[Rfam]
RNA sequence: CGGUAGCUGGACCCACCGGGCUUUCACGAGCCGAACCCAGCCAUUCAAAGUCCAUUCCGGACAACAACCACCCGCGGG
Numbered sequence: 001c002g003g004u005a006g007c008u009g010g011a012c013c014c015a016c017c018g019g020g021c022u023u024u025c026a027c028g029a030g031c032c033g034a035a036c037c038c039a040g041c042c043a044u045u046c047a048a049a050g051u052c053c054a055u056u057c058c059g060g061a062c063a064a065c066a067a068c069c070a071c072c073c074g075c076g077g078g
Stems, first nucleotide, its partner, number of pairs: 001018004006041005019032004050062004

Rfam assigns this 78-nucleotide RNA to the family "DUF3085 RNA".